[Rfam]
RNA sequence: AUCGAGUGGUGCAGAAUACGCGCCUUGCAAAAUAACCGACGUCUAAUAGCGUCGGUUAUUUUUUUAC
Numbered sequence: 001a002u003c004g005a006g007u008g009g010u011g012c013a014g015a016a017u018a019c020g021c022g023c024c025u026u027g028c029a030a031a032a033u034a035a036c037c038g039a040c041g042u043c044u045a046a047u048a049g050c051g052u053c054g055g056u057u058a059u060u061u062u063u064u065u066a067c
Base pairs, nucleotide, nucleotide: 011021012020033058034057035056036055037054038053039052040051041050
The record is a 67-nucleotide sequence from Pectobacterium carotovorum, which matches "Enterobacterial sRNA STnc240" in Rfam. The base pairs follow the family's consensus structure, which was predicted with WAR. The source organism's lineage runs through Bacteria, Pseudomonadati, Gammaproteobacteria, Enterobacterales and Pectobacterium carotovorum subsp. carotovorum. By type it is a small RNA. It is one of the family's seed sequences.